RNA sequence: GGAGGAGUUCCCGAGUGGCCAAAGGGGGCAGACUGUAAAUCUGUUACGUAAUGUUUCGAUGGUUCGAAUCCAUCUUCCUCCA
Number, nucleotide and partner (000 for none) at each position: 001g081002g080003a079004g078005g077006a076007g075008u000009u000010c026011c025012c024013g000014a000015g000016u000017g000018g000019c000020c000021a000022a000023a000024g012025g011026g010027g000028g044029c043030a042031g041032a040033c000034u000035g000036u000037a000038a000039a000040u032041c031042u030043g029044u028045u000046a000047c000048g000049u000050a000051a000052u000053g000054u000055u000056u000057c000058g074059a073060u072061g071062g070063u000064u000065c000066g000067a000068a000069u000070c062071c061072a060073u059074c058075u007076u006077c005078c004079u003080c002081c001082a000
A member of the RNA family "tRNA" from Clostridium sp. JN-9, 82 nucleotides long.
It is annotated as a transfer RNA.
Lineage of the source: Bacteria > Clostridia > Eubacteriales > Clostridiaceae > Clostridium.
Rfam describes the family as follows. Transfer RNA (tRNA) molecules are approximately 80 nucleotides in length.